[Rfam]
RNA: Plant signal recognition particle RNA
RNA sequence: GCCGAGCUCAGUAACGUGGGCUUGUAACCCAAGUGGGGGCUUUAAAGUGAUUGGACGGUUGGGCCUGCUCAUUAGUUGGGCCUGCGGAUUGCCCAUGCAGGCCUGCCUGUUACAAGUGGGGAGCUGGGUCAUGAGGUUUAAUCGAAGGUUUGGGCCUCGUGUUCCUUAGAGCGGAGGGCAUAGCGUCAGGCUGGUUUCACAGAGCAACGAACACCUCCCGCUCUCUACAGUGGAAAGAUAAGGGCUUGCUCAAACAGAACAGUCACUUUUUGCUCCUUCCAGGCCCCAUUAAAAAAGUUUUU
Numbered sequence: 001g002c003c004g005a006g007c008u009c010a011g012u013a014a015c016g017u018g019g020g021c022u023u024g025u026a027a028c029c030c031a032a033g034u035g036g037g038g039g040c041u042u043u044a045a046a047g048u049g050a051u052u053g054g055a056c057g058g059u060u061g062g063g064c065c066u067g068c069u070c071a072u073u074a075g076u077u078g079g080g081c082c083u084g085c086g087g088a089u090u091g092c093c094c095a096u097g098c099a100g101g102c103c104u105g106c107c108u109g110u111u112a113c114a115a116g117u118g119g120g121g122a123g124c125u126g127g128g129u130c131a132u133g134a135g136g137u138u139u140a141a142u143c144g145a146a147g148g149u150u151u152g153g154g155c156c157u158c159g160u161g162u163u164c165c166u167u168a169g170a171g172c173g174g175a176g177g178g179c180a181u182a183g184c185g186u187c188a189g190g191c192u193g194g195u196u197u198c199a200c201a202g203a204g205c206a207a208c209g210a211a212c213a214c215c216u217c218c219c220g221c222u223c224u225c226u227a228c229a230g231u232g233g234a235a236a237g238a239u240a241a242g243g244g245c246u247u248g249c250u251c252a253a254a255c256a257g258a259a260c261a262g263u264c265a266c267u268u269u270u271u272g273c274u275c276c277u278u279c280c281a282g283g284c285c286c287c288a289u290u291a292a293a294a295a296a297g298u299u300u301u302u
Base pairs, nucleotide, nucleotide: 001040002039003038004023005022006021007020008019009018010017028037029036030035045302046301047300049298051296052295057290060288061287062285063284064283065282066281067280071277074274075273076272078270079264080263081262083259085257087255089253090252091251098248099247100246101245102244103243104242107237108236110235111234113232114231116228117227118226119225120224121223122222123221124220126165127164128163130161131160132159133158134157135156136155137154138153139152140151141150143148166171173218174217175216176215177214184209185208186207191202192201193200